[Rfam]
The family of this 86-nucleotide RNA from Ursus americanus is "mir-877 microRNA precursor family".
RNA sequence: GUAGAGGAGAUGGUGCAAGGGGUGUGGGCUAAGGCUUGGGGGUUCCCAGAGCCUUCGGACGUGUGUCCUCUUCUCCCUCCUCCAGG
Numbered sequence: 001g002u003a004g005a006g007g008a009g010a011u012g013g014u015g016c017a018a019g020g021g022g023u024g025u026g027g028g029c030u031a032a033g034g035c036u037u038g039g040g041g042g043u044u045c046c047c048a049g050a051g052c053c054u055u056c057g058g059a060c061g062u063g064u065g066u067c068c069u070c071u072u073c074u075c076c077c078u079c080c081u082c083c084a085g086g
Base pairs, nucleotide, nucleotide: 004082005081006080007079008078009077012076013075015073017071019069020068021067022066023065024064025063026062028060036058037057038056039055040054041053042052043050044049
Pairs were carried over by alignment from the consensus structure, which was predicted with RNAalifold.